[Rfam]
RNA sequence: GAGGAUAUGAUGAUCCUGUUCCCAGAUGAUAGACAAUGAACAUACUAUCCUC
Numbered sequence: 001g002a003g004g005a006u007a008u009g010a011u012g013a014u015c016c017u018g019u020u021c022c023c024a025g026a027u028g029a030u031a032g033a034c035a036a037u038g039a040a041c042a043u044a045c046u047a048u049c050c051u052c
Stems, first nucleotide, its partner, number of pairs: 001052005
RNA: Small nucleolar RNA Z103
Organism: Oryza sativa